RNA sequence: CAGGCCCGAGUGCUCCCCUCGAACAACCAUGGCAGAGGUGGGGGACCCAGGAAGUUGGGUUGCGGCCGUGAGUGGCCAAAACCCUGGGGUGAAGUCCGCGGGAGCGGACCGGGCUAUGAAUCCCAGCCCGAACCCGACAGCUAACUUCACAGGCGUCGGGAGACAACCA
Numbered sequence: 001c002a003g004g005c006c007c008g009a010g011u012g013c014u015c016c017c018c019u020c021g022a023a024c025a026a027c028c029a030u031g032g033c034a035g036a037g038g039u040g041g042g043g044g045a046c047c048c049a050g051g052a053a054g055u056u057g058g059g060u061u062g063c064g065g066c067c068g069u070g071a072g073u074g075g076c077c078a079a080a081a082c083c084c085u086g087g088g089g090u091g092a093a094g095u096c097c098g099c100g101g102g103a104g105c106g107g108a109c110c111g112g113g114c115u116a117u118g119a120a121u122c123c124c125a126g127c128c129c130g131a132a133c134c135c136g137a138c139a140g141c142u143a144a145c146u147u148c149a150c151a152g153g154c155g156u157c158g159g160g161a162g163a164c165a166a167c168c169a
Stems, first nucleotide, its partner, number of pairs: 001035001038150006048086004087135003095108004111129004